[Rfam]
RNA: DUF3800-XI RNA
RNA sequence: UGAGCUGGUCGCAAGACCCAGGUUCAACCUAACAGGCGUGGGAGACUCCC
Numbered sequence: 001u002g003a004g005c006u007g008g009u010c011g012c013a014a015g016a017c018c019c020a021g022g023u024u025c026a027a028c029c030u031a032a033c034a035g036g037c038g039u040g041g042g043a044g045a046c047u048c049c050c
Stems, first nucleotide, its partner, number of pairs: 001026006007018004